[Rfam]
RNA sequence: ACAACACCCGGACCGUCGGUCUACCGAGCAAUAUCACCCGCUCGGUAGAAGAUCUUCCCUUUGUCGU
Number, nucleotide and partner (000 for none) at each position: 001a000002c000003a000004a064005c063006a062007c000008c000009c000010g058011g057012a056013c000014c000015g053016u052017c051018g000019g000020u049021c048022u047023a046024c045025c044026g043027a042028g041029c040030a000031a000032u000033a000034u000035c000036a000037c000038c000039c000040g029041c028042u027043c026044g025045g024046u023047a022048g021049a020050a000051g017052a016053u015054c000055u000056u012057c011058c010059c000060u000061u000062u006063g005064u004065c000066g000067u000

Background
This 67-nucleotide RNA sequence from Bombyx mori belongs to the Rfam family "mir-2774 microRNA precursor family". The literature on the family includes a 2010 paper in BMC Genomics by Liu et al., "MicroRNAs of Bombyx mori identified by Solexa sequencing". Rfam links the family to the GO terms miRNA-mediated post-transcriptional gene silencing and RISC complex.